[Rfam]
Annotation
This 586-nucleotide part of an RNA from Candidatus Tremblayella princeps belongs to the Rfam family "Bacterial small subunit ribosomal RNA". Rfam's curators put it in the seed alignment. For this family Rfam cites "Crystal structure of the ribosome at 5.5 A resolution" (Yusupov et al., Science, 2001).
RNA sequence: UGACGGGGACCCGCACAAGCGGUGGAUGAUGUGGAUUAAUUCGAUGCAACGCGAAGAACCUUACCUACUCUUGACAUGGCGGAGAUUCUGCCGAGAGGCGGAAGUGCUCGAAAGAGAAUUCGCACACAGGUGCUGCAUGGCUGUCGUCAGCUCGUGUCGUGAGAUGUUGGGUUAAGUCCCAUAACGAGCGCAACCCCCGUCUUUAGUUGCUACCACUGGGGCACUCUAUAGAGACUGCCGGUGAUAAGCCGGAGGAAGGUGGGGACGACGUCAAGUCAUCAUGGCCUUAAUGGGUAGGGCUUCACACGUCAUACAAUGACUGGAUCAAAGGGUCGCCAACUCGAGAGAGGGAGCUAAUCCCAUAAACCCAGCCCCAGUUCGGAUUGGAGUCUGCAACUCGACUCCAUGAAGUCGGAAUCGCUAGUAAUCGUGGAUCAGCAUGCCACGGUGAAUACGUUCUCGGGUCUUGUACACACAGCCCGUCACACCAUGGGAGUAAGCCGCAUCAGAAGCAGCAUCCCUAACCCUAUGCAGGGAAGGAGGCUGCGAAGGUGGGGUCUAUGACUGGGGUGAAGUCGUAACAAGG
Numbered sequence: 001u002g003a004c005g006g007g008g009a010c011c012c013g014c015a016c017a018a019g020c021g022g023u024g025g026a027u028g029a030u031g032u033g034g035a036u037u038a039a040u041u042c043g044a045u046g047c048a049a050c051g052c053g054a055a056g057a058a059c060c061u062u063a064c065c066u067a068c069u070c071u072u073g074a075c076a077u078g079g080c081g082g083a084g085a086u087u088c089u090g091c092c093g094a095g096a097g098g099c100g101g102a103a104g105u106g107c108u109c110g111a112a113a114g115a116g117a118a119u120u121c122g123c124a125c126a127c128a129g130g131u132g133c134u135g136c137a138u139g140g141c142u143g144u145c146g147u148c149a150g151c152u153c154g155u156g157u158c159g160u161g162a163g164a165u166g167u168u169g170g171g172u173u174a175a176g177u178c179c180c181a182u183a184a185c186g187a188g189c190g191c192a193a194c195c196c197c198c199g200u201c202u203u204u205a206g207u208u209g210c211u212a213c214c215a216c217u218g219g220g221g222c223a224c225u226c227u228a229u230a231g232a233g234a235c236u237g238c239c240g241g242u243g244a245u246a247a248g249c250c251g252g253a254g255g256a257a258g259g260u261g262g263g264g265a266c267g268a269c270g271u272c273a274a275g276u277c278a279u280c281a282u283g284g285c286c287u288u289a290a291u292g293g294g295u296a297g298g299g300c301u302u303c304a305c306a307c308g309u310c311a312u313a314c315a316a317u318g319a320c321u322g323g324a325u326c327a328a329a330g331g332g333u334c335g336c337c338a339a340c341u342c343g344a345g346a347g348a349g350g351g352a353g354c355u356a357a358u359c360c361c362a363u364a365a366a367c368c369c370a371g372c373c374c375c376a377g378u379u380c381g382g383a384u385u386g387g388a389g390u391c392u393g394c395a396a397c398u399c400g401a402c403u404c405c406a407u408g409a410a411g412u413c414g415g416a417a418u419c420g421c422u423a424g425u426a427a428u429c430g431u432g433g434a435u436c437a438g439c440a441u442g443c444c445a446c447g448g449u450g451a452a453u454a455c456g457u458u459c460u461c462g463g464g465u466c467u468u469g470u471a472c473a474c475a476c477a478g479c480c481c482g483u484c485a486c487a488c489c490a491u492g493g494g495a496g497u498a499a500g501c502c503g504c505a506u507c508a509g510a511a512g513c514a515g516c517a518u519c520c521c522u523a524a525c526c527c528u529a530u531g532c533a534g535g536g537a538a539g540g541a542g543g544c545u546g547c548g549a550a551g552g553u554g555g556g557g558u559c560u561a562u563g564a565c566u567g568g569g570g571u572g573a574a575g576u577c578g579u580a581a582c583a584a585g586g
Stems, first nucleotide, its partner, number of pairs: 001473002003470003007467007015457002019421005024314001026312008034303002040055004064298007077126002079123005086103007105118001107116002129287002132285004138281002140276003143272001145270002150189006156165003168181004195264004200232003204228003210221002235255002238252005318373001320371004330361003335354002340349003380411001385406007427449007476585001478582001481578002486572004491567003496562003500558003504554004512547005520540003525536004